[Rfam]
RNA sequence: CUCUUAUCAAGAGUAGGCGGAGGGACUGGCCCGACGAUGCCACGGCAACCGACACGAUAUUUCGUGCACGGUGCCAAUUCCAACAGGUUGUUUAUGCAACCUGAAAGAUGAGAG
Numbered sequence: 001c002u003c004u005u006a007u008c009a010a011g012a013g014u015a016g017g018c019g020g021a022g023g024g025a026c027u028g029g030c031c032c033g034a035c036g037a038u039g040c041c042a043c044g045g046c047a048a049c050c051g052a053c054a055c056g057a058u059a060u061u062u063c064g065u066g067c068a069c070g071g072u073g074c075c076a077a078u079u080c081c082a083a084c085a086g087g088u089u090g091u092u093u094a095u096g097c098a099a100c101c102u103g104a105a106a107g108a109u110g111a112g113a114g
Base pairs, nucleotide, nucleotide: 001114002113003112004111005110006109007108008107013043014042016041017040018039022032023031024030027082028081029080044075045074046073047072049071050070053066054065055064079106084103085102086101087100088099089098
Rfam assigns this 114-nucleotide sequence from Tumebacillus algifaecis to the family "SAM riboswitch aptamer (S box leader)". The source organism's lineage runs through Bacteria, Bacillati, Bacillota, Alicyclobacillaceae and Tumebacillus. Rfam links the family to the GO term regulation of gene expression. The match comes from Rfam's covariance-model search (89 bits).